Shown here is a 105-nucleotide RNA from Ziziphus jujuba, a member of the family "Small nucleolar RNA Z107/R87". The family's RNA type in Rfam is C/D-box small nucleolar RNA. For this family Rfam cites "Identification of 66 box C/D snoRNAs in Arabidopsis thaliana: extensive gene duplications generated multiple isoforms predicting new ribosomal RNA 2'-O-methylation sites" (Barneche et al., J Mol Biol, 2001). The family has 9 seed sequences and 783 matches in Rfam 15.1.
[Rfam]
RNA sequence: GGUCGCGGUGAUGACUCCAUGAAAUUCAAGCUCAACAGACCGGAAUGCAGGCUUCUCUUUCUAAGAGAACUUUGCGUGUCGACUACCCCGCUGAACUGAGCGAUC
Numbered sequence: 001g002g003u004c005g006c007g008g009u010g011a012u013g014a015c016u017c018c019a020u021g022a023a024a025u026u027c028a029a030g031c032u033c034a035a036c037a038g039a040c041c042g043g044a045a046u047g048c049a050g051g052c053u054u055c056u057c058u059u060u061c062u063a064a065g066a067g068a069a070c071u072u073u074g075c076g077u078g079u080c081g082a083c084u085a086c087c088c089c090g091c092u093g094a095a096c097u098g099a100g101c102g103a104u105c
Base pairs, nucleotide, nucleotide: 001105002104003103004102005101006100